[Rfam]
RNA sequence: GUGUUCAAUGAUGAUUUCUGAUGCCUUGCCUGAGUUCAUUUUGAAUAAUGAGGGCAGCUUCAGUCACUACCUCUUCUGAGACAC
Numbered sequence: 001g002u003g004u005u006c007a008a009u010g011a012u013g014a015u016u017u018c019u020g021a022u023g024c025c026u027u028g029c030c031u032g033a034g035u036u037c038a039u040u041u042u043g044a045a046u047a048a049u050g051a052g053g054g055c056a057g058c059u060u061c062a063g064u065c066a067c068u069a070c071c072u073c074u075u076c077u078g079a080g081a082c083a084c
Stems, first nucleotide, its partner, number of pairs: 001084004